[Rfam]
RNA sequence: GCGAAAAACUCUGGAGAGACCCCCCACCGGGGGCGCCGAAGGGAUAGCGAUCUCAGGCGAACGGGACAGAGGGGGCAUC
Numbered sequence: 001g002c003g004a005a006a007a008a009c010u011c012u013g014g015a016g017a018g019a020c021c022c023c024c025c026a027c028c029g030g031g032g033g034c035g036c037c038g039a040a041g042g043g044a045u046a047g048c049g050a051u052c053u054c055a056g057g058c059g060a061a062c063g064g065g066a067c068a069g070a071g072g073g074g075g076c077a078u079c
Stems, first nucleotide, its partner, number of pairs: 009071005020033004035058003038054002042052002